[Rfam]
RNA: pan motif
RNA sequence: AAGGCGGUAUCGAUGUUUCGAGCUGCACUUAUGUGGACAUUGUAAUGAGGAAGUGAAUAACCGUCAUGACCGUAAGUAUAUUCGGUUGCGUCGGAUUCUGCUCUGAGCCGAGAAGGACCGAGACAGAAGG
Numbered sequence: 001a002a003g004g005c006g007g008u009a010u011c012g013a014u015g016u017u018u019c020g021a022g023c024u025g026c027a028c029u030u031a032u033g034u035g036g037a038c039a040u041u042g043u044a045a046u047g048a049g050g051a052a053g054u055g056a057a058u059a060a061c062c063g064u065c066a067u068g069a070c071c072g073u074a075a076g077u078a079u080a081u082u083c084g085g086u087u088g089c090g091u092c093g094g095a096u097u098c099u100g101c102u103c104u105g106a107g108c109c110g111a112g113a114a115g116g117a118c119c120g121a122g123a124c125a126g127a128a129g130g
Stems, first nucleotide, its partner, number of pairs: 001030003004026005010021002098126003101122003105118001108116002